[Rfam]
A member of the RNA family "FMN riboswitch aptamer (RFN element)" from Paenibacillus sp. PvR098, 179 nucleotides long. The RFN element is a highly conserved domain that is found frequently in the 5'-untranslated regions of prokaryotic mRNAs that encode for flavin mononucleotide (FMN) biosynthesis and transport proteins. NCBI's taxonomy places the organism under Bacteria, Bacillota, Caryophanales, Paenibacillaceae, Paenibacillus.
RNA sequence: UUGAACCUUCGGGGCAGGGUGAAAUUCCCAACCGGCGGUGAUGUCAAGCGGCGUAAGCUGCUUGACUCAGUCCGUGACCCGUGCAGCAGCAAAGCGCCUUCCCUAGGUGAGCAGCCACUGCCGGUGGACUCGGUGUAAUUCCGAGACCGACAGUACAGUCUGGAUGGGAGAAGGGGAAA
Numbered sequence: 001u002u003g004a005a006c007c008u009u010c011g012g013g014g015c016a017g018g019g020u021g022a023a024a025u026u027c028c029c030a031a032c033c034g035g036c037g038g039u040g041a042u043g044u045c046a047a048g049c050g051g052c053g054u055a056a057g058c059u060g061c062u063u064g065a066c067u068c069a070g071u072c073c074g075u076g077a078c079c080c081g082u083g084c085a086g087c088a089g090c091a092a093a094g095c096g097c098c099u100u101c102c103c104u105a106g107g108u109g110a111g112c113a114g115c116c117a118c119u120g121c122c123g124g125u126g127g128a129c130u131c132g133g134u135g136u137a138a139u140u141c142c143g144a145g146a147c148c149g150a151c152a153g154u155a156c157a158g159u160c161u162g163g164a165u166g167g168g169a170g171a172a173g174g175g176g177a178a179a
Base pairs, nucleotide, nucleotide: 006174007173008172009171010170017029018028019027031159032158033149034148035075036074037073038072070147071146079124080123129145130144131143132142133141151162152161153160